The record is a 116-nucleotide RNA sequence from Romboutsia sp. CE17, which matches "PyrR binding site" in Rfam. It scores 68 bits against the family's covariance model. Rfam classes the family as a cis-regulatory element. Rfam's curators write: This family represents the PyrR binding site and terminator structure. This RNA structure is found upstream of a variety of genes involved in pyrimidine biosynthesis and transport. The alignment also includes a portion of the antiterminator structure. The source organism's lineage runs through Bacteria, Bacillati, Clostridia, Peptostreptococcales and Romboutsia.
RNA sequence: AAAGUCUUUUAAAAUAGUCCAGAGAGGCUGAUAAAGAUAUCUAAUAACUAAUUAUGAGUAUAAAAUUAAGUUUAGAUAGAGUCCUUAUACCUCUUUUCAGGUGUAAGGACUUUUGU
Number, nucleotide and partner (000 for none) at each position: 001a000002a000003a000004g038005u037006c036007u035008u034009u033010u000011a000012a000013a000014a000015u030016a029017g028018u027019c026020c000021a000022g000023a000024g000025a000026g019027g018028c017029u016030g015031a000032u000033a009034a008035a007036g006037a005038u004039a000040u000041c000042u000043a000044a000045u000046a077047a000048c075049u074050a073051a072052u000053u070054a000055u068056g067057a066058g000059u064060a000061u000062a000063a000064a059065a000066u057067u056068a055069a000070g053071u000072u051073u050074a049075g048076a000077u046078a000079g000080a111081g110082u109083c108084c107085u106086u105087a104088u103089a102090c101091c100092u099093c000094u000095u000096u000097u000098c000099a092100g091101g090102u089103g088104u087105a086106a085107g084108g083109a082110c081111u080112u000113u000114u000115g000116u000